[Rfam]
Shown here is a 48-nucleotide RNA sequence, a member of the family "eL15-Euryarchaeota ribosomal protein leader".
Rfam classes the family as a cis-regulatory leader.
It is one of the family's seed sequences.
RNA sequence: CGGGAGGGAUCCCGUGGGAAUGUAGCCGGAAAAAGGCUGAACCGUGAA
Numbered sequence: 001c002g003g004g005a006g007g008g009a010u011c012c013c014g015u016g017g018g019a020a021u022g023u024a025g026c027c028g029g030a031a032a033a034a035g036g037c038u039g040a041a042c043c044g045u046g047a048a
Stems, first nucleotide, its partner, number of pairs: 001014005017043002023039005